[Rfam]
RNA sequence: GGUUUAUAAAGAAGUGGCGAGAGAUCAGGCUCUGAAACCCACUGGCAACCCUCCUUUAUUGGAGAAGGUGCCAAUUCCUGGCCCGGAAAAUAACCCCGGGAAAUAUAAAUU
Numbered sequence: 001g002g003u004u005u006a007u008a009a010a011g012a013a014g015u016g017g018c019g020a021g022a023g024a025u026c027a028g029g030c031u032c033u034g035a036a037a038c039c040c041a042c043u044g045g046c047a048a049c050c051c052u053c054c055u056u057u058a059u060u061g062g063a064g065a066a067g068g069u070g071c072c073a074a075u076u077c078c079u080g081g082c083c084c085g086g087a088a089a090a091u092a093a094c095c096c097c098g099g100g101a102a103a104u105a106u107a108a109a110u111u
Stems, first nucleotide, its partner, number of pairs: 001111008013043005021032003026080004044072004049068002051064004076103001082100005

The record is a 111-nucleotide sequence from Mucilaginibacter arboris, which matches "SAM riboswitch aptamer (S box leader)" in Rfam. It scores 76 bits against the family's covariance model.